Shown here is a 100-nucleotide RNA from Ancistrocladus tectorius, a member of the family "Plastid-rps12 3UTR RNA". A reference for the family is Richter et al. (2023), "Retrograde signaling in plants: A critical review focusing on the GUN pathway and beyond", Plant Commun. The base pairs follow the family's consensus structure, which was predicted with LocARNA. The family's RNA type in Rfam is cis-regulatory element.

RNA sequence: GGUUUCUAUUCGCGUAAAUCCAAUCAGCUCGAUUUAAGAUGAGAAAGAAGCAGUUUCCCAUUGGUAGCAAAUGUUAUCCAUUAAGCGGGAGAAAUCUGAU
Numbered sequence: 001g002g003u004u005u006c007u008a009u010u011c012g013c014g015u016a017a018a019u020c021c022a023a024u025c026a027g028c029u030c031g032a033u034u035u036a037a038g039a040u041g042a043g044a045a046a047g048a049a050g051c052a053g054u055u056u057c058c059c060a061u062u063g064g065u066a067g068c069a070a071a072u073g074u075u076a077u078c079c080a081u082u083a084a085g086c087g088g089g090a091g092a093a094a095u096c097u098g099a100u
Stems, first nucleotide, its partner, number of pairs: 009023002012020001056090004060081002063078005